[Rfam]
RNA sequence: UAGUUAGCGAUGAUUAUAAAAAUAAUUCUGCGUUCUGACUUGCUUAAUUUGGGCAUUACAAACCUUUUAUUACAACAUAGAAUUUGAGUUAC
Dot-bracket structure: ..((.((.................................................................................))))

Background
This 92-nucleotide RNA from Theobroma cacao belongs to the Rfam family "Small nucleolar RNA snoR8a". Its family is annotated with nucleolus and RNA processing in the Gene Ontology. NCBI's taxonomy places the organism under Eukaryota, Streptophytina, Spermatophyta, Magnoliopsida, Theobroma. It is annotated as a C/D-box small nucleolar RNA.